[Rfam]
Nucleotides: 064
Base pairs, nucleotide, nucleotide: 011048012046013045014044015043016042025037026036027035028034052064054062056060
Number, partner (000 for none) and nucleotide at each position: 001000u002000u003000u004000a005000a006000a007000u008000g009000a010000c011048g012046u013045c014044g015043g016042c017000u018000a019000a020000g021000u022000u023000c024000c025037u026036c027035a028034c029000g030000u031000c032000c033000u034028g035027u036026g037025a038000c039000a040000a041000c042016g043015u044014c045013g046012a047000a048011c049000u050000g051000g052064c053000u054062u055000g056060c057000u058000u059000u060056g061000g062054a063000u064052g

Shown here is a 64-nucleotide sequence from Alteribacillus bidgolensis, a member of the family "Bacillaceae-1 RNA". The source organism's lineage runs through Bacteria, Bacillota, Caryophanales, Bacillaceae and Alteribacillus. A search with the family's covariance model found it, with a score of 37 bits. The family's consensus secondary structure is taken from published work.